[Rfam]
RNA sequence: UGCGUAUUUUGCCCAGGCGGAACUCGACCGCCGCACCAAGUCCUGAGGGCAUUUGUCGACCAGCAUCGUGACCGUCUCGGGGUCGAGUCGAUCUGCCGUGUCUUGCAGAUCGCCCCG
Numbered sequence: 001u002g003c004g005u006a007u008u009u010u011g012c013c014c015a016g017g018c019g020g021a022a023c024u025c026g027a028c029c030g031c032c033g034c035a036c037c038a039a040g041u042c043c044u045g046a047g048g049g050c051a052u053u054u055g056u057c058g059a060c061c062a063g064c065a066u067c068g069u070g071a072c073c074g075u076c077u078c079g080g081g082g083u084c085g086a087g088u089c090g091a092u093c094u095g096c097c098g099u100g101u102c103u104u105g106c107a108g109a110u111c112g113c114c115c116c117g
Stems, first nucleotide, its partner, number of pairs: 016032005078117005089112002092109005098103001
Background
The family of this 117-nucleotide RNA sequence from Pseudomonas sp. 21C1 is "ALIL pseudoknot". Lineage of the source: Bacteria > Pseudomonadati > Gammaproteobacteria > Pseudomonadaceae > Pseudomonas. Pairs were carried over by alignment from the consensus structure, which is taken from published work. Rfam classes the family as a cis-regulatory element. Its family is annotated with positive regulation of translational frameshifting in the Gene Ontology. A reference for the family is Mazauric et al. (2008), "Apical loop-internal loop RNA pseudoknots: a new type of stimulator of -1 translational frameshifting in bacteria", J Biol Chem. The match comes from Rfam's covariance-model search (108 bits).